[Rfam]
RNA sequence: UCCUCGAUUCGCAUACUCUCUCGCUGGUCAGACAGACGAGAGAGCAUGCAAAUCGAGGAGA
Numbered sequence: 001u002c003c004u005c006g007a008u009u010c011g012c013a014u015a016c017u018c019u020c021u022c023g024c025u026g027g028u029c030a031g032a033c034a035g036a037c038g039a040g041a042g043a044g045c046a047u048g049c050a051a052a053u054c055g056a057g058g059a060g061a
Stems, first nucleotide, its partner, number of pairs: 001059007012048003016044002019041004

mir-8364 microRNA precursor family: a 61-nucleotide sequence from Pristionchus pacificus. The family has 13 seed sequences and 3,320 matches in Rfam 15.1. Rfam links the family to the GO terms RISC complex and miRNA-mediated post-transcriptional gene silencing.